[Rfam]
RNA sequence: CCUUGGAAGAGUUAUAUCAAACUAGAGUAGAUUUUAUCGAAAUAGGACUUUAUGAAUAAGGAA
Numbered sequence: 001c002c003u004u005g006g007a008a009g010a011g012u013u014a015u016a017u018c019a020a021a022c023u024a025g026a027g028u029a030g031a032u033u034u035u036a037u038c039g040a041a042a043u044a045g046g047a048c049u050u051u052a053u054g055a056a057u058a059a060g061g062a063a
Base pairs, nucleotide, nucleotide: 001061002060003059004058005057009050010049011048012047013046022045023044024043030038031037032036
RNA: RAGATH-18 RNA